[Rfam]
RNA sequence: GCGGGGCUGCGGGGCGCGUUAGGAGUUCAUAUUCCCCGGGGCCUUAUCGAUCCUGAAGGGAGCUGUCCCUGACCCGGUCCGUGGACUGGGACACACGGCGCCCACCUACUUUGUAGGUUCCCGGGAUCGCUUCUCCGACGGUUUCUGUGGCUCCGCA
Numbered sequence: 001g002c003g004g005g006g007c008u009g010c011g012g013g014g015c016g017c018g019u020u021a022g023g024a025g026u027u028c029a030u031a032u033u034c035c036c037c038g039g040g041g042c043c044u045u046a047u048c049g050a051u052c053c054u055g056a057a058g059g060g061a062g063c064u065g066u067c068c069c070u071g072a073c074c075c076g077g078u079c080c081g082u083g084g085a086c087u088g089g090g091a092c093a094c095a096c097g098g099c100g101c102c103c104a105c106c107u108a109c110u111u112u113g114u115a116g117g118u119u120c121c122c123g124g125g126a127u128c129g130c131u132u133c134u135c136c137g138a139c140g141g142u143u144u145c146u147g148u149g150g151c152u153c154c155g156c157a
Stems, first nucleotide, its partner, number of pairs: 002155010012144004017140003033126004038121006058103003062099005073090005
RNA: 6S / SsrS RNA